The record is a 95-nucleotide sequence from Hypoxylon sp. CO27-5, which matches "tRNA" in Rfam. Rfam's curators write: Transfer RNA (tRNA) molecules are approximately 80 nucleotides in length. It scores 58 bits against the family's covariance model. By type it is a transfer RNA.

[Rfam]
RNA sequence: GGGCGCAUGGCCUAAUGGUAAGGCGUCAGAUUUCGGUUCCAUUCAUGGUUUAUACUGUUCUCUGAAGAUUGCAGGUUCGAUCCCUGCUGUGCUCG
Numbered sequence: 001g002g003g004c005g006c007a008u009g010g011c012c013u014a015a016u017g018g019u020a021a022g023g024c025g026u027c028a029g030a031u032u033u034c035g036g037u038u039c040c041a042u043u044c045a046u047g048g049u050u051u052a053u054a055c056u057g058u059u060c061u062c063u064g065a066a067g068a069u070u071g072c073a074g075g076u077u078c079g080a081u082c083c084c085u086g087c088u089g090u091g092c093u094c095g
Stems, first nucleotide, its partner, number of pairs: 001094007010024004026065005071087005